The family of this 600-nucleotide part of an RNA from Dendroctonus ponderosae is "Eukaryotic small subunit ribosomal RNA".
RNA sequence: AACCUGGUUGAUCCUGCCAGUAGUCAUAUGCUUGUCUCAAAGAUUAAGCCAUGCAUGUCUAAGUAUUAGUUUUUAAUAUAACGAAACUGCGAAUGGCUCAUUAUAACAGUUAUAAUUUACGUGAAUAUACUUACUACACGGAUAACCGUGGCAAUUCUGGAGCUAAUACGUGCAAAACGCCCGUUUUCGGGUGGCACUUAUUAGACUGAGAACCAACCUAUGCGCAAGCAUAGCACCUUGGUGAUCCAAAAUAAGUUUGCGAAUCGCAUAGCUUCGGCUGGCGAUGGUUCACUUAAGUUUCUGACCUAUCAGCUUUCGACGGUAGGGUAUUGGCCUACCGUGGCGGUGACGGGUAACGGGGAAUUAGGGUUUGAUUCCGGAGAGGGAGCCUGAGAAACGGCUACCACAUCUAAGGAAGGCAGCAGGCGCGCAAAUUACCCAAUCCUGACACAGGGAGGUAGUGACAAGAAAUAUCAAUGCGGAAUUUUUGUUUCGCAAUUGGAAUGAGUUUAAUCUAAACCCCUUUGCGAAUGUCCAUUGGAGGGCAAGCCUGGUGCCAGCAGCCGCGGUAAUUCCAGCUCCAAUAGCGUAUAUUAAAGU
Numbered sequence: 001a002a003c004c005u006g007g008u009u010g011a012u013c014c015u016g017c018c019a020g021u022a023g024u025c026a027u028a029u030g031c032u033u034g035u036c037u038c039a040a041a042g043a044u045u046a047a048g049c050c051a052u053g054c055a056u057g058u059c060u061a062a063g064u065a066u067u068a069g070u071u072u073u074u075a076a077u078a079u080a081a082c083g084a085a086a087c088u089g090c091g092a093a094u095g096g097c098u099c100a101u102u103a104u105a106a107c108a109g110u111u112a113u114a115a116u117u118u119a120c121g122u123g124a125a126u127a128u129a130c131u132u133a134c135u136a137c138a139c140g141g142a143u144a145a146c147c148g149u150g151g152c153a154a155u156u157c158u159g160g161a162g163c164u165a166a167u168a169c170g171u172g173c174a175a176a177a178c179g180c181c182c183g184u185u186u187u188c189g190g191g192u193g194g195c196a197c198u199u200a201u202u203a204g205a206c207u208g209a210g211a212a213c214c215a216a217c218c219u220a221u222g223c224g225c226a227a228g229c230a231u232a233g234c235a236c237c238u239u240g241g242u243g244a245u246c247c248a249a250a251a252u253a254a255g256u257u258u259g260c261g262a263a264u265c266g267c268a269u270a271g272c273u274u275c276g277g278c279u280g281g282c283g284a285u286g287g288u289u290c291a292c293u294u295a296a297g298u299u300u301c302u303g304a305c306c307u308a309u310c311a312g313c314u315u316u317c318g319a320c321g322g323u324a325g326g327g328u329a330u331u332g333g334c335c336u337a338c339c340g341u342g343g344c345g346g347u348g349a350c351g352g353g354u355a356a357c358g359g360g361g362a363a364u365u366a367g368g369g370u371u372u373g374a375u376u377c378c379g380g381a382g383a384g385g386g387a388g389c390c391u392g393a394g395a396a397a398c399g400g401c402u403a404c405c406a407c408a409u410c411u412a413a414g415g416a417a418g419g420c421a422g423c424a425g426g427c428g429c430g431c432a433a434a435u436u437a438c439c440c441a442a443u444c445c446u447g448a449c450a451c452a453g454g455g456a457g458g459u460a461g462u463g464a465c466a467a468g469a470a471a472u473a474u475c476a477a478u479g480c481g482g483a484a485u486u487u488u489u490g491u492u493u494c495g496c497a498a499u500u501g502g503a504a505u506g507a508g509u510u511u512a513a514u515c516u517a518a519a520c521c522c523c524u525u526u527g528c529g530a531a532u533g534u535c536c537a538u539u540g541g542a543g544g545g546c547a548a549g550c551c552u553g554g555u556g557c558c559a560g561c562a563g564c565c566g567c568g569g570u571a572a573u574u575c576c577a578g579c580u581c582c583a584a585u586a587g588c589g590u591a592u593a594u595u596a597a598a599g600u
Stems, first nucleotide, its partner, number of pairs: 004020005022595003026592007035469003041462001042429001048427003052424003057090002062088003069082002097382003107303003112298002116296002122291004137172004146162001149159003178193005198254005212242004221230003264284004269280004305353003312344003319341008357379004361372004384405002387402003407418001409416002435460001437459003443455005475501003478497008508528002512524001538584006551578004560567002
About this RNA: The organism belongs to Dendroctonus, within Eukaryota. A reference for the family is Yusupov et al. (2001), "Crystal structure of the ribosome at 5.5 A resolution", Science. Rfam links the family to the GO terms ribosome and structural constituent of ribosome.